[Rfam]
Rfam assigns this 159-nucleotide sequence from Cohnella cholangitidis to the family "Group II catalytic intron D1-D4-3". A search with the family's covariance model found it, with a score of 81 bits.
RNA sequence: ACCGCCGCGAGGCGGAAUCUGAAGGAAGCCGGAGGCAAAAGCACGGCUCGAGGUACACGAAUCCAAUUUGAUGCGGUUGCAGACGGAUGAGUCACCAUAACAUAACCUAAGCUGCCAAAGACUGUAGACUUGGGCGGGCACGGGCGGAAAGAUGGCGUU
Numbered sequence: 001a002c003c004g005c006c007g008c009g010a011g012g013c014g015g016a017a018u019c020u021g022a023a024g025g026a027a028g029c030c031g032g033a034g035g036c037a038a039a040a041g042c043a044c045g046g047c048u049c050g051a052g053g054u055a056c057a058c059g060a061a062u063c064c065a066a067u068u069u070g071a072u073g074c075g076g077u078u079g080c081a082g083a084c085g086g087a088u089g090a091g092u093c094a095c096c097a098u099a100a101c102a103u104a105a106c107c108u109a110a111g112c113u114g115c116c117a118a119a120g121a122c123u124g125u126a127g128a129c130u131u132g133g134g135c136g137g138g139c140a141c142g143g144g145c146g147g148a149a150a151g152a153u154g155g156c157g158u159u
Stems, first nucleotide, its partner, number of pairs: 002015005028159001030157002036151001041145002044142002046139005062134005067128001073125003077121001085113002088110001091106002094103001